Selenocysteine transfer RNA: an 86-nucleotide RNA sequence from Tetrabaena socialis. Pairs were carried over by alignment from the consensus structure, which is taken from published work. Gene Ontology term of the family: triplet codon-amino acid adaptor activity. Rfam 15.1 lists 4,211 matches to the family in 3,344 species. A search with the family's covariance model found it, with a score of 79 bits. Lineage of the source: Eukaryota > Viridiplantae > Chlorophyceae > Chlamydomonadales > Tetrabaena.

RNA sequence: GCCGACCUGAACUUGACUGGUGUUGGGUGCGGACUUCAAAUCCGUAGAGGCCGGGAGGCCUAGUGGUUCGAUUCCACCUGGUCGGC
Numbered sequence: 001g002c003c004g005a006c007c008u009g010a011a012c013u014u015g016a017c018u019g020g021u022g023u024u025g026g027g028u029g030c031g032g033a034c035u036u037c038a039a040a041u042c043c044g045u046a047g048a049g050g051c052c053g054g055g056a057g058g059c060c061u062a063g064u065g066g067u068u069c070g071a072u073u074c075c076a077c078c079u080g081g082u083c084g085g086c
Stems, first nucleotide, its partner, number of pairs: 001086007009078001012027006028046006048061005063077004